Background
This 74-nucleotide RNA from Wickerhamomyces canadensis belongs to the Rfam family "tRNA". About the family: Transfer RNA (tRNA) molecules are approximately 80 nucleotides in length. A reference for the family is Hou (1993), "The tertiary structure of tRNA and the development of the genetic code", Trends Biochem Sci. Lineage of the source: Eukaryota > saccharomyceta > Saccharomycotina > Saccharomycetes > Wickerhamomyces. Gene Ontology term of the family: triplet codon-amino acid adaptor activity. Rfam's curators put it in the seed alignment. Rfam classes the family as a transfer RNA.
[Rfam]
RNA sequence: UGAAUUGUAGACUAAUAGGUAAGUCCCCAAAAUUUGAGUUUGGCUUAUGGUGUGUUCGAAUCACCCCAAUUCAA
Numbered sequence: 001u002g003a004a005u006u007g008u009a010g011a012c013u014a015a016u017a018g019g020u021a022a023g024u025c026c027c028c029a030a031a032a033u034u035u036g037a038g039u040u041u042g043g044c045u046u047a048u049g050g051u052g053u054g055u056u057c058g059a060a061u062c063a064c065c066c067c068a069a070u071u072c073a074a
Base pairs, nucleotide, nucleotide: 001073002072003071004070005069006068007067010025011024012023013022027043028042029041030040031039050066052064053063054062